This 114-nucleotide RNA sequence from Paragonimus heterotremus belongs to the Rfam family "Potassium channel RNA editing signal". Rfam's curators write: This family represents a group of sequences related to the human potassium channel Kv1.1 hairpin element which directs the efficient modification of an adenosine to inosine by an adenosine deaminase acting on RNA (ADAR). Rfam links the family to the GO term adenosine to inosine editing. The literature on the family includes a 2004 paper in Nat Struct Mol Biol by Bhalla et al., "Control of human potassium channel inactivation by editing of a small mRNA hairpin". It scores 95 bits against the family's covariance model. NCBI's taxonomy places the organism under Eukaryota, Metazoa, Bilateria, Trematoda, Paragonimus. The family's RNA type in Rfam is cis-regulatory element. The base pairs follow the family's consensus structure, which is taken from published work. Rfam 15.1 lists 14,095 matches to the family in 1,000 species.
RNA sequence: GUUGGCUAUGGUGACAUGCGGCCCGUCACCAUGUGGGGGAAAAUUGUCGGUUCAAUGUGUGCAAUUGCUGGCGUGUUAACCAUCGCCCUUCCCGUGCCGGUCAUUGUGUCAAAC
Numbered sequence: 001g002u003u004g005g006c007u008a009u010g011g012u013g014a015c016a017u018g019c020g021g022c023c024c025g026u027c028a029c030c031a032u033g034u035g036g037g038g039g040a041a042a043a044u045u046g047u048c049g050g051u052u053c054a055a056u057g058u059g060u061g062c063a064a065u066u067g068c069u070g071g072c073g074u075g076u077u078a079a080c081c082a083u084c085g086c087c088c089u090u091c092c093c094g095u096g097c098c099g100g101u102c103a104u105u106g107u108g109u110c111a112a113a114c
Stems, first nucleotide, its partner, number of pairs: 001114002005110001007108005013102003018097002021095002037077002040074001050062002